[Rfam]
RNA sequence: CCGUGCAGCCGGGGAGUUAGCGGUGCCCUAUACCUGCAAUCCGCUAUAGCAGGGGUGUUGCCAAUCGGAGGCAUUUAUUUUGUAAGGCUGCCCUUUAAAAGUGGCGAUGAUGAUUGGGUCUUACGCAACAGGAAUCUAUGAACCGUGUCAGGUCUGGAAGGAAGCAGCACUAAGUAGAACCUCCUGUGUGCCGUAAGGUUGCCUGAUUUGAGCUAACUAUAGAGGUAACGCUUAUGAAUAUUUGUCGAUGUGCGGUGCACGG
Numbered sequence: 001c002c003g004u005g006c007a008g009c010c011g012g013g014g015a016g017u018u019a020g021c022g023g024u025g026c027c028c029u030a031u032a033c034c035u036g037c038a039a040u041c042c043g044c045u046a047u048a049g050c051a052g053g054g055g056u057g058u059u060g061c062c063a064a065u066c067g068g069a070g071g072c073a074u075u076u077a078u079u080u081u082g083u084a085a086g087g088c089u090g091c092c093c094u095u096u097a098a099a100a101g102u103g104g105c106g107a108u109g110a111u112g113a114u115u116g117g118g119u120c121u122u123a124c125g126c127a128a129c130a131g132g133a134a135u136c137u138a139u140g141a142a143c144c145g146u147g148u149c150a151g152g153u154c155u156g157g158a159a160g161g162a163a164g165c166a167g168c169a170c171u172a173a174g175u176a177g178a179a180c181c182u183c184c185u186g187u188g189u190g191c192c193g194u195a196a197g198g199u200u201g202c203c204u205g206a207u208u209u210g211a212g213c214u215a216a217c218u219a220u221a222g223a224g225g226u227a228a229c230g231c232u233u234a235u236g237a238a239u240a241u242u243u244g245u246c247g248a249u250g251u252g253c254g255g256u257g258c259a260c261g262g
Base pairs, nucleotide, nucleotide: 001262002261003260004259005258006257007256008056009055010054011029012028013027014026016024017023018022033053034052035051036050037049061255062254066250067249070246071245072244073243076240077239078238079237080236082235083234084233085232086231089227090226093224094223095222096221097220101217102216103214104213105212112208113207114206115205116204117203118202119201120197121196122195123194124193125192126188127187129186130185131184132183133182135178136177137176138175139174145170146169147168148167153162154161155160
RNA: Bacterial large signal recognition particle RNA
Organism: Vallitalea guaymasensis